Background
Rfam assigns this 197-nucleotide RNA sequence from Acerihabitans arboris to the family "Manganese Mn2+ riboswitch aptamer (yybP-ykoY)". The organism belongs to Acerihabitans, within Bacteria. This RNA was originally discovered in E. coli during a large scale screen and was named SraF. The family was later found to exist upstream of related families of protein genes in many bacteria, including the the yybP and ykoK genes in B. subtilis. The specific functions of these proteins are unknown, but this structured RNA element may be involved in their genetic regulation as a riboswitch.
RNA sequence: UUUUCGGUCAUUAGGGAGUAGCCGGUUUUCGCCCGAUAAAGCGGAAAUGCCCGUAUCAACAUACUCGUUAUAAGCUGCUAAUCCGGCUUGAACGUGGUGCGGGCGACCAGGAAGGUCGGCGAGACUAUAGACACGACGAACCAUCGUAGGGUUGGGAUGAUGGGGAAGCGUGUAUAUUGGCUCCCAGCCGAGGCGUU
Number, nucleotide and partner (000 for none) at each position: 001u000002u000003u000004u000005c000006g000007g000008u000009c000010a000011u000012u000013a000014g000015g000016g000017a000018g000019u000020a000021g000022c000023c000024g000025g000026u047027u046028u045029u044030c043031g042032c041033c000034c000035g000036a000037u000038a000039a000040a000041g032042c031043g030044g029045a028046a027047a026048u000049g104050c103051c102052c101053g100054u099055a098056u097057c096058a095059a000060c000061a000062u000063a000064c000065u000066c094067g093068u092069u000070a000071u000072a000073a000074g000075c000076u000077g000078c000079u000080a000081a000082u000083c000084c000085g000086g000087c000088u000089u000090g000091a000092a068093c067094g066095u058096g057097g056098u055099g054100c053101g052102g051103g050104c049105g197106a196107c195108c192109a000110g000111g000112a000113a000114g000115g000116u000117c000118g000119g000120c000121g000122a000123g000124a000125c000126u000127a000128u000129a000130g000131a000132c000133a000134c000135g000136a000137c000138g000139a000140a000141c000142c000143a000144u000145c000146g000147u000148a000149g000150g000151g000152u000153u000154g000155g000156g000157a000158u000159g000160a000161u000162g000163g000164g000165g000166a000167a000168g000169c000170g000171u000172g000173u000174a000175u000176a000177u000178u000179g000180g000181c000182u000183c000184c000185c000186a000187g000188c000189c000190g000191a000192g108193g000194c000195g107196u106197u105